[Rfam]
RNA sequence: ACGGGGCAAGGCAAUCCCCCGUUCAGGCGUUCCCCGCCCAAGCAUUGC
Numbered sequence: 001a002c003g004g005g006g007c008a009a010g011g012c013a014a015u016c017c018c019c020c021g022u023u024c025a026g027g028c029g030u031u032c033c034c035c036g037c038c039c040a041a042g043c044a045u046u047g048c
Stems, first nucleotide, its partner, number of pairs: 001022006011048005026038004
Shown here is a 48-nucleotide RNA from Sphingobium sp. C100, a member of the family "chrB-b RNA". The organism belongs to Sphingobium, within Bacteria.